[Rfam]
RNA: RNase MRP
RNA sequence: ACACCACUGGGCGAAGCGAAUGGGCCACGGUUCUGUAAAAGGAACCAGGCUCAGGAAAGUCCCCGGGCCCACUAACUGCAGAGAUGCAGGCCUGGAAACAGGUAACCUCCGAGAACUUGGAGCCUUAAUCGCCUUGCGCGAUGGGCUGAGACACGUGUGGAGCCUUGGGCUUCAAGCCCGGAGCAUAUUUGGCCGAUUGUACAGUUAUUCGCUUGGUCCUCUGGACUAACUGAACGGGGCUUACGAUCCAGUGGUG
Numbered sequence: 001a002c003a004c005c006a007c008u009g010g011g012c013g014a015a016g017c018g019a020a021u022g023g024g025c026c027a028c029g030g031u032u033c034u035g036u037a038a039a040a041g042g043a044a045c046c047a048g049g050c051u052c053a054g055g056a057a058a059g060u061c062c063c064c065g066g067g068c069c070c071a072c073u074a075a076c077u078g079c080a081g082a083g084a085u086g087c088a089g090g091c092c093u094g095g096a097a098a099c100a101g102g103u104a105a106c107c108u109c110c111g112a113g114a115a116c117u118u119g120g121a122g123c124c125u126u127a128a129u130c131g132c133c134u135u136g137c138g139c140g141a142u143g144g145g146c147u148g149a150g151a152c153a154c155g156u157g158u159g160g161a162g163c164c165u166u167g168g169g170c171u172u173c174a175a176g177c178c179c180g181g182a183g184c185a186u187a188u189u190u191g192g193c194c195g196a197u198u199g200u201a202c203a204g205u206u207a208u209u210c211g212c213u214u215g216g217u218c219c220u221c222u223g224g225a226c227u228a229a230c231u232g233a234a235c236g237g238g239g240c241u242u243a244c245g246a247u248c249c250a251g252u253g254g255u256g
Stems, first nucleotide, its partner, number of pairs: 002256010014214006021053006029046006057242003061239004077088004090103005116181002122177002125174001127172001131170004143165004153158001216226004
Dot-bracket structure: .((((((((((..((((((.((((((..((((((......)))))).))))))...[[[.[[[[............((((....)))).(((((....)))))............((....((.(.(...((((........((((......(....)...)))).)))).).).))..))...........................)))))).((((...)))).........]]]]]]]....))))))))))